[Rfam]
RNA sequence: CUCUUAUCCAGAGCAGGCGGAGGGACUGGCCCUAUGAAGCCCGGCAACCGACGAAAGAGCGGUGCUAACCAGCAGAACGGACAUCUGUUCUGGCCGAUAAGAG
Numbered sequence: 001c002u003c004u005u006a007u008c009c010a011g012a013g014c015a016g017g018c019g020g021a022g023g024g025a026c027u028g029g030c031c032c033u034a035u036g037a038a039g040c041c042c043g044g045c046a047a048c049c050g051a052c053g054a055a056a057g058a059g060c061g062g063u064g065c066u067a068a069c070c071a072g073c074a075g076a077a078c079g080g081a082c083a084u085c086u087g088u089u090c091u092g093g094c095c096g097a098u099a100a101g102a103g
Stems, first nucleotide, its partner, number of pairs: 001103008013042001016041003022032003026072004043066004048062002073092006

Rfam assigns this 103-nucleotide sequence from Brevibacillus centrosporus to the family "SAM riboswitch aptamer (S box leader)". The source organism's lineage runs through Bacteria, Bacillati, Bacilli, Paenibacillaceae and Brevibacillus.